RNA: Bacterial large subunit ribosomal RNA, nucleotides 1647 to 2007
RNA sequence: UGAGAGAACUCGGGUGAAGGAACUAGGCAAAAUAGCACCGUAACUUCGGGAGAAGGUGCGCUUACAGUAAUUGUAGUCCCUCGCGGACGAAGGUGAAGUAAGUCGAAGAUACCAGCUGGCUGCAACUGUUUAUUAAAAACACAGCACUCUGCAAACACGAAAGUGGACGUAUAGGGUGUGAUGCCUGCCCGGUGCUGGAAGGUUAAUUGAUGGUGUAAUCGAAAGAGAAGCUCCUGAUCGAAGCCCCAGUAAACGGCGGCCGUAACUAUAACGGUCCUAAGGUAGCGAAAUUCCUUGUCGGGUAAGUUCCGACCUGCACGAAUGGCAUAAUGAUGGCCAGGCUGUCUCCACCCGAGACUCA
Numbered sequence: 001u002g003a004g005a006g007a008a009c010u011c012g013g014g015u016g017a018a019g020g021a022a023c024u025a026g027g028c029a030a031a032a033u034a035g036c037a038c039c040g041u042a043a044c045u046u047c048g049g050g051a052g053a054a055g056g057u058g059c060g061c062u063u064a065c066a067g068u069a070a071u072u073g074u075a076g077u078c079c080c081u082c083g084c085g086g087a088c089g090a091a092g093g094u095g096a097a098g099u100a101a102g103u104c105g106a107a108g109a110u111a112c113c114a115g116c117u118g119g120c121u122g123c124a125a126c127u128g129u130u131u132a133u134u135a136a137a138a139a140c141a142c143a144g145c146a147c148u149c150u151g152c153a154a155a156c157a158c159g160a161a162a163g164u165g166g167a168c169g170u171a172u173a174g175g176g177u178g179u180g181a182u183g184c185c186u187g188c189c190c191g192g193u194g195c196u197g198g199a200a201g202g203u204u205a206a207u208u209g210a211u212g213g214u215g216u217a218a219u220c221g222a223a224a225g226a227g228a229a230g231c232u233c234c235u236g237a238u239c240g241a242a243g244c245c246c247c248a249g250u251a252a253a254c255g256g257c258g259g260c261c262g263u264a265a266c267u268a269u270a271a272c273g274g275u276c277c278u279a280a281g282g283u284a285g286c287g288a289a290a291u292u293c294c295u296u297g298u299c300g301g302g303u304a305a306g307u308u309c310c311g312a313c314c315u316g317c318a319c320g321a322a323u324g325g326c327a328u329a330a331u332g333a334u335g336g337c338c339a340g341g342c343u344g345u346c347u348c349c350a351c352c353c354g355a356g357a358c359u360c361a
Stems, first nucleotide, its partner, number of pairs: 001361004009356008018347003035059005044049001060103006078093002081090003104108001116340007123332002127141003144179008152169001156165003182327004187257003192254002194250005201245003212234002215231002219226002258276006277281001287314001297313006